This 98-nucleotide RNA sequence from Stenotrophomonas koreensis belongs to the Rfam family "Glycine riboswitch aptamer".
The literature on the family includes a 2017 paper in MBio by Babina et al., "In Vivo Behavior of the Tandem Glycine Riboswitch in Bacillus subtilis".
It scores 64 bits against the family's covariance model.

[Rfam]
RNA sequence: CAGCACAACUCUGGAGAGACCGGUACAACCCGGCGCCGAAGGGGCACCACGCGCACAUGCGCGUCCAAACUCUCAGGCAAAAGGACAGAGGGGCAACU
Number, nucleotide and partner (000 for none) at each position: 001c000002a000003g000004c000005a000006c093007a000008a000009c090010u089011c088012u087013g086014g000015a000016g000017a000018g000019a000020c033021c032022g031023g030024u000025a000026c000027a000028a000029c000030c023031c022032g021033g020034c000035g078036c077037c076038g074039a073040a000041g000042g072043g071044g070045c000046a000047c000048c000049a064050c063051g062052c061053g000054c000055a000056c000057a000058u000059g000060c000061g052062c051063g050064u049065c000066c000067a000068a000069a000070c044071u043072c042073u039074c038075a000076g037077g036078c035079a000080a000081a000082a000083g000084g000085a000086c013087a012088g011089a010090g009091g000092g000093g006094c000095a000096a000097c000098u000